[Rfam]
RNA sequence: CCCCCGUGAUGAGUCGCCAUGCUAAUACCGAGGCACCGGGCGAGACGUCGGACGUUCCGCAUCGGGUGCCGUUGAGUUAAACUCUGCUUCUCUCGCGGAGACCUGAGGGGC
Numbered sequence: 001c002c003c004c005c006g007u008g009a010u011g012a013g014u015c016g017c018c019a020u021g022c023u024a025a026u027a028c029c030g031a032g033g034c035a036c037c038g039g040g041c042g043a044g045a046c047g048u049c050g051g052a053c054g055u056u057c058c059g060c061a062u063c064g065g066g067u068g069c070c071g072u073u074g075a076g077u078u079a080a081a082c083u084c085u086g087c088u089u090c091u092c093u094c095g096c097g098g099a100g101a102c103c104u105g106a107g108g109g110g111c
Stems, first nucleotide, its partner, number of pairs: 001110004041059002044056005
Dot-bracket structure: ((((....................................((.(((((...))))).))...............................................)))).

Annotation:
The record is a 111-nucleotide RNA from Ornithorhynchus anatinus, which matches "Small nucleolar RNA U6-53/MBII-28" in Rfam. Rfam links the family to the GO terms RNA processing and nucleolus. The family has 25 seed sequences and 780 matches in Rfam 15.1. For this family Rfam cites "RNomics: an experimental approach that identifies 201 candidates for novel, small, non-messenger RNAs in mouse" (Huttenhofer et al., EMBO J, 2001). It is annotated as a C/D-box small nucleolar RNA. A search with the family's covariance model found it, with a score of 90 bits.